[Rfam]
RNA sequence: UCAGAUGGCCGGACGGCCGCUCCGCUCCGAAAGGGGCGGGGAGGAAAGUCCGGGCUCCAUGGAAACACGGUGCCGGGUAACGCCCGGCGGGGGCGACCCUAGGGAAAGUGCCACAGAAAGCAAACCGCCCCGCAUAGCCUUCGGGCGACGCGGGGUAAGGGUGAAAGGGUGCGGUAAGAGCGCACCGCGCGCCUGGCAACAGGGGCGGCACGGUAAACCCCACCGGGAGCAAGACCUAAUAGGGAUGGGGCUCUUCAAUGAGCAAGCCCGUUUUCAGGCUCCAUCCGGGUUGGUCGCGCGAGGCAUCCGGCAACGGGUGUCCCAGAUGAAUGGCCGUCGCCGGCUUGCCGGCACAGAACCCGGCUUACAGGCCAUCUGACGCC
Numbered sequence: 001u002c003a004g005a006u007g008g009c010c011g012g013a014c015g016g017c018c019g020c021u022c023c024g025c026u027c028c029g030a031a032a033g034g035g036g037c038g039g040g041g042a043g044g045a046a047a048g049u050c051c052g053g054g055c056u057c058c059a060u061g062g063a064a065a066c067a068c069g070g071u072g073c074c075g076g077g078u079a080a081c082g083c084c085c086g087g088c089g090g091g092g093g094c095g096a097c098c099c100u101a102g103g104g105a106a107a108g109u110g111c112c113a114c115a116g117a118a119a120g121c122a123a124a125c126c127g128c129c130c131c132g133c134a135u136a137g138c139c140u141u142c143g144g145g146c147g148a149c150g151c152g153g154g155g156u157a158a159g160g161g162u163g164a165a166a167g168g169g170u171g172c173g174g175u176a177a178g179a180g181c182g183c184a185c186c187g188c189g190c191g192c193c194u195g196g197c198a199a200c201a202g203g204g205g206c207g208g209c210a211c212g213g214u215a216a217a218c219c220c221c222a223c224c225g226g227g228a229g230c231a232a233g234a235c236c237u238a239a240u241a242g243g244g245a246u247g248g249g250g251c252u253c254u255u256c257a258a259u260g261a262g263c264a265a266g267c268c269c270g271u272u273u274u275c276a277g278g279c280u281c282c283a284u285c286c287g288g289g290u291u292g293g294u295c296g297c298g299c300g301a302g303g304c305a306u307c308c309g310g311c312a313a314c315g316g317g318u319g320u321c322c323c324a325g326a327u328g329a330a331u332g333g334c335c336g337u338c339g340c341c342g343g344c345u346u347g348c349c350g351g352c353a354c355a356g357a358a359c360c361c362g363g364c365u366u367a368c369a370g371g372c373c374a375u376c377u378g379a380c381g382c383c
Stems, first nucleotide, its partner, number of pairs: 001379010011368001012338007020041009046366003050363005055229004063274003068225005073087005088102001089100004103220002108218002110214003125160002127156007135148001168186006187209001188207003192203004233295004243286006266279003270275001302321008
Rfam assigns this 383-nucleotide RNA from Tepidicaulis marinus to the family "Bacterial RNase P class A". The organism belongs to Tepidicaulis, within Bacteria. The base pairs follow the family's consensus structure, which is taken from published work.